About this RNA: A member of the RNA family "Molybdenum/Tungsten riboswitch aptamer (Moco RNA motif)" from Kluyvera genomosp. 3, 137 nucleotides long. The source organism's lineage runs through Bacteria, Pseudomonadati, Pseudomonadota, Enterobacteriaceae and Kluyvera. It scores 87 bits against the family's covariance model.
[Rfam]
RNA sequence: CUGAACAAAACACUCUAGCCUCUGCGCCUAAGUUGAAAAAUAAGGUGCUUUGGCCGCAACGGGUCACGCCGUUGCCAGGGCGAAGGAAGAAAUGAUCUCGCCUCCCGUAUUUGGAAAGGUGUCUAUGGCUUUACAAC
Numbered sequence: 001c002u003g004a005a006c007a008a009a010a011c012a013c014u015c016u017a018g019c020c021u022c023u024g025c026g027c028c029u030a031a032g033u034u035g036a037a038a039a040a041u042a043a044g045g046u047g048c049u050u051u052g053g054c055c056g057c058a059a060c061g062g063g064u065c066a067c068g069c070c071g072u073u074g075c076c077a078g079g080g081c082g083a084a085g086g087a088a089g090a091a092a093u094g095a096u097c098u099c100g101c102c103u104c105c106c107g108u109a110u111u112u113g114g115a116a117a118g119g120u121g122u123c124u125a126u127g128g129c130u131u132u133a134c135a136a137c
Stems, first nucleotide, its partner, number of pairs: 010122004015118001018054003024048005032041003056075007078103006085096001088093001104114002